[Rfam]
RNA sequence: UCUACAGAGUGUUAUAACAAAUGAGAGUAGCUUAGGCAAAAUCAGACACGAUGAAGUAGAAA
Dot-bracket structure: (((((...(((((........(((.....((....))....))))))))......)))))..
RNA: RAGATH-18 RNA